[Rfam]
RNA sequence: UGCAAUGAUGUUGUAAUUUGCGUCUUACUCUGUUCUUGGCAACAGCUUACUGCUCUCAGCAAGCUGGUACAGAAGGUUGACGAAUAUUUAAAAAAAUUGAACU
Numbered sequence: 001u002g003c004a005a006u007g008a009u010g011u012u013g014u015a016a017u018u019u020g021c022g023u024c025u026u027a028c029u030c031u032g033u034u035c036u037u038g039g040c041a042a043c044a045g046c047u048u049a050c051u052g053c054u055c056u057c058a059g060c061a062a063g064c065u066g067g068u069a070c071a072g073a074a075g076g077u078u079g080a081c082g083a084a085u086a087u088u089u090a091a092a093a094a095a096a097u098u099g100a101a102c103u
Stems, first nucleotide, its partner, number of pairs: 002102001021082004030072004039064002042056001044054002
Shown here is a 103-nucleotide RNA from Fukomys damarensis, a member of the family "Small nucleolar RNA SNORD16". Pairs were carried over by alignment from the consensus structure, which was predicted with PFOLD. For this family Rfam cites "A novel small nucleolar RNA (U16) is encoded inside a ribosomal protein intron and originates by processing of the pre-mRNA" (Fragapane et al., EMBO J, 1993). Gene Ontology terms of the family: RNA processing and nucleolus. Clan: SNORD16 clan. The organism belongs to Fukomys, within Eukaryota. The family has 5 seed sequences and 1,321 matches in Rfam 15.1.